[Rfam]
RNA sequence: GCUAAGUCCUUUCUUUCUAUCCUAGUAUAACUUGAAGAAUUCAAAUAGUCAUGCUAGAACAGAAAGAAUGGGAGUUGGC
Numbered sequence: 001g002c003u004a005a006g007u008c009c010u011u012u013c014u015u016u017c018u019a020u021c022c023u024a025g026u027a028u029a030a031c032u033u034g035a036a037g038a039a040u041u042c043a044a045a046u047a048g049u050c051a052u053g054c055u056a057g058a059a060c061a062g063a064a065a066g067a068a069u070g071g072g073a074g075u076u077g078g079c
Stems, first nucleotide, its partner, number of pairs: 001079005007073004011068008020059001022057007030049003033043004
Shown here is a 79-nucleotide RNA from Macaca mulatta, a member of the family "mir-3146 microRNA precursor family".
NCBI's taxonomy places the organism under Eukaryota, Opisthokonta, Boreoeutheria, Haplorrhini, Macaca.
Its family is annotated with RISC complex and miRNA-mediated post-transcriptional gene silencing in the Gene Ontology.